[Rfam]
RNA sequence: AGAAACGAUGGGGAUGGGGUCCCCCGACAACCGCCGCACUGGACAGGCUGAUGACUCCUGCCGAUAC
Numbered sequence: 001a002g003a004a005a006c007g008a009u010g011g012g013g014a015u016g017g018g019g020u021c022c023c024c025c026g027a028c029a030a031c032c033g034c035c036g037c038a039c040u041g042g043a044c045a046g047g048c049u050g051a052u053g054a055c056u057c058c059u060g061c062c063g064a065u066a067c
Stems, first nucleotide, its partner, number of pairs: 010025004016058006033048003
The family of this 67-nucleotide sequence from Desulfosudis oleivorans is "Fluoride riboswitch aptamer (crcB RNA motif)".